[Rfam]
RNA: mir-33 microRNA precursor family
Organism: Apis mellifera
RNA sequence: CAACUGUGCAUUGUAGUUGCAUUGCAUGAAAUAUAACUAUGCAAUACUUCUACAGUGCAACUCUUG
Numbered sequence: 001c002a003a004c005u006g007u008g009c010a011u012u013g014u015a016g017u018u019g020c021a022u023u024g025c026a027u028g029a030a031a032u033a034u035a036a037c038u039a040u041g042c043a044a045u046a047c048u049u050c051u052a053c054a055g056u057g058c059a060a061c062u063c064u065u066g
Stems, first nucleotide, its partner, number of pairs: 001066003006062001007059010019047001021045007